A member of the RNA family "small nucleolar RNA snoR126" from Olea europaea, 107 nucleotides long. The literature on the family includes a 2009 paper in Nucleic Acids Res by Chen and Wu, "Mining small RNA sequencing data: a new approach to identify small nucleolar RNAs in Arabidopsis". Rfam classes the family as a C/D-box small nucleolar RNA. The family has 4 seed sequences and 423 matches in Rfam 15.1. Pairs were carried over by alignment from the consensus structure, which was predicted with RNAalifold.
RNA sequence: AGGCGAUGAAGAUAGAAUUCAUUUCUCGAUGCUGAUAUAAUAAUAGGGUUUUUGACCUUCCAUUUGGUCUUUAAUUCUGAUGACCUAUUUGUGCGUGUCUGAGCCUC
Numbered sequence: 001a002g003g004c005g006a007u008g009a010a011g012a013u014a015g016a017a018u019u020c021a022u023u024u025c026u027c028g029a030u031g032c033u034g035a036u037a038u039a040a041u042a043a044u045a046g047g048g049u050u051u052u053u054g055a056c057c058u059u060c061c062a063u064u065u066g067g068u069c070u071u072u073a074a075u076u077c078u079g080a081u082g083a084c085c086u087a088u089u090u091g092u093g094c095g096u097g098u099c100u101g102a103g104c105c106u107c
Stems, first nucleotide, its partner, number of pairs: 001106004